Description
This 80-nucleotide RNA from Eragrostis curvula belongs to the Rfam family "Small nucleolar RNA U61". For this family Rfam cites "Plant snoRNA database" (Brown et al., Nucleic Acids Res, 2003). The family's consensus secondary structure was predicted with WAR. The family has 8 seed sequences and 401 matches in Rfam 15.1. Lineage of the source: Eukaryota > Streptophytina > commelinids > Chloridoideae > Eragrostis. Rfam links the family to the GO terms nucleolus and RNA processing. It is annotated as a C/D-box small nucleolar RNA. Its Rfam clan is "SNORD61 clan".
RNA sequence: UGGCAAUGAGGAAAGAAAUACUUGUGCCGGAGGCUUCCGCCGGUGUCGGUUGCACAAAUCCUCUAAGAAGUUCUGAGCCG
Numbered sequence: 001u002g003g004c005a006a007u008g009a010g011g012a013a014a015g016a017a018a019u020a021c022u023u024g025u026g027c028c029g030g031a032g033g034c035u036u037c038c039g040c041c042g043g044u045g046u047c048g049g050u051u052g053c054a055c056a057a058a059u060c061c062u063c064u065a066a067g068a069a070g071u072u073c074u075g076a077g078c079c080g
Base pairs, nucleotide, nucleotide: 001080002079003078004077